The record is a 158-nucleotide sequence from Thermosinus carboxydivorans, which matches "glmS glucosamine-6-phosphate activated ribozyme aptamer" in Rfam.
The family's consensus secondary structure is taken from published work.

RNA sequence: UAGACGAUAAAAGCGCUGGCGCUUGCGGCUGGUGGCCGCAAGCAGACGAGGAAGAGGUUUAUCGAGCAGUCAGCGGAUGCCUCUCGGCUCACUGCGGUCGUAAGCCGGCCGACAAAACUGCGAGGCGACUUGCAGGACAAAACGGCGGCGGCAGCAAU
Numbered sequence: 001u002a003g004a005c006g007a008u009a010a011a012a013g014c015g016c017u018g019g020c021g022c023u024u025g026c027g028g029c030u031g032g033u034g035g036c037c038g039c040a041a042g043c044a045g046a047c048g049a050g051g052a053a054g055a056g057g058u059u060u061a062u063c064g065a066g067c068a069g070u071c072a073g074c075g076g077a078u079g080c081c082u083c084u085c086g087g088c089u090c091a092c093u094g095c096g097g098u099c100g101u102a103a104g105c106c107g108g109c110c111g112a113c114a115a116a117a118c119u120g121c122g123a124g125g126c127g128a129c130u131u132g133c134a135g136g137a138c139a140a141a142a143c144g145g146c147g148g149c150g151g152c153a154g155c156a157a158u
Stems, first nucleotide, its partner, number of pairs: 021043007029035001053084005062073001064071002085100005105148002108146003118135007
Rfam classes the family as a riboswitch. Gene Ontology terms of the family: catalytic activity and regulation of gene expression.